A member of the RNA family "DUF3800-II RNA", 69 nucleotides long. The base pairs follow the family's consensus structure, which is taken from published work.
RNA sequence: UAAACGAGAAGCUUGGGACAAAUCCCAGUGGGAAAGUUUGUUUUUAACAAACUACUAAGCUUUCUGACC
Numbered sequence: 001u002a003a004a005c006g007a008g009a010a011g012c013u014u015g016g017g018a019c020a021a022a023u024c025c026c027a028g029u030g031g032g033a034a035a036g037u038u039u040g041u042u043u044u045u046a047a048c049a050a051a052c053u054a055c056u057a058a059g060c061u062u063u064c065u066g067a068c069c
Base pairs, nucleotide, nucleotide: 007065008064009063010062012059013058014057015056016055023033024032025031026030035053036052037051038050039049040048041047